[Rfam]
RNA: Selenocysteine insertion sequence 1
Organism: Triplophysa tibetana
RNA sequence: GUGGCUUUUAUGAAGGCAGGUGCAGAAACUAUUUCCUAGUGGCGCCUGUCAGAUGUUAGUCCAC
Numbered sequence: 001g002u003g004g005c006u007u008u009u010a011u012g013a014a015g016g017c018a019g020g021u022g023c024a025g026a027a028a029c030u031a032u033u034u035c036c037u038a039g040u041g042g043c044g045c046c047u048g049u050c051a052g053a054u055g056u057u058a059g060u061c062c063a064c
Stems, first nucleotide, its partner, number of pairs: 001064004015050009029039003
Dot-bracket structure: ((((..........(((((((((.....(((.....)))..)))))))))..........))))